[Rfam]
RNA sequence: GACAAACAGUGUGAGAGACACUGUCGCCGAAAGUCCAAGGGUUCCUGCGUAAAGCUAAUCUGCGCAGGGUUAGCCGGUCCCUAAGGCGAGGCCGAAAGGCGUAGUCGAUGGGAAUGAGGUCAAUAUUCCUCAGCCUGCGGGUAGUGACGAAUUCCGUGUAUCGUUCGGCCUUAUUGGAUUGGUCGGGCGGUGAAGGAGUUCCAGGAAAUAGCUCCCGCUUACAGACCGUACCCUAAACCGACACAGGUGGACUGGUAGAGUAUACCAAGGCGCU
Numbered sequence: 001g002a003c004a005a006a007c008a009g010u011g012u013g014a015g016a017g018a019c020a021c022u023g024u025c026g027c028c029g030a031a032a033g034u035c036c037a038a039g040g041g042u043u044c045c046u047g048c049g050u051a052a053a054g055c056u057a058a059u060c061u062g063c064g065c066a067g068g069g070u071u072a073g074c075c076g077g078u079c080c081c082u083a084a085g086g087c088g089a090g091g092c093c094g095a096a097a098g099g100c101g102u103a104g105u106c107g108a109u110g111g112g113a114a115u116g117a118g119g120u121c122a123a124u125a126u127u128c129c130u131c132a133g134c135c136u137g138c139g140g141g142u143a144g145u146g147a148c149g150a151a152u153u154c155c156g157u158g159u160a161u162c163g164u165u166c167g168g169c170c171u172u173a174u175u176g177g178a179u180u181g182g183u184c185g186g187g188c189g190g191u192g193a194a195g196g197a198g199u200u201c202c203a204g205g206a207a208a209u210a211g212c213u214c215c216c217g218c219u220u221a222c223a224g225a226c227c228g229u230a231c232c233c234u235a236a237a238c239c240g241a242c243a244c245a246g247g248u249g250g251a252c253u254g255g256u257a258g259a260g261u262a263u264a265c266c267a268a269g270g271c272g273c274u
Stems, first nucleotide, its partner, number of pairs: 006024006025272004033252004039232002044068006053061002075228004080111002085106003089102001091100003115132005135224002137219001140216002143213003149201004160191011238247002254266004